Nucleotides: 078
Stems, first nucleotide, its partner, number of pairs: 002077004008071001011068003016064002020061003024058007
Number, partner (000 for none) and nucleotide at each position: 001000g002077g003076u004075u005074u006000c007000c008071u009000g010000a011068a012067u013066c014000u015000g016064u017063g018000c019000u020061g021060a022059g023000a024058u025057u026056u027055c028054g029053u030052c031000g032000g033000a034000c035000a036000c037000c038000g039000a040000c041000c042000a043000a044000c045000c046000a047000u048000g049000g050000g051000u052030g053029a054028u055027g056026a057025g058024a059022c060021u061020u062000c063017c064016g065000a066013g067012a068011u069000a070000a071008g072000u073000u074005a075004a076003g077002u078000g
Record summary: This 78-nucleotide RNA sequence from Schistosoma japonicum belongs to the Rfam family "mir-3492 microRNA precursor family". It scores 45 bits against the family's covariance model.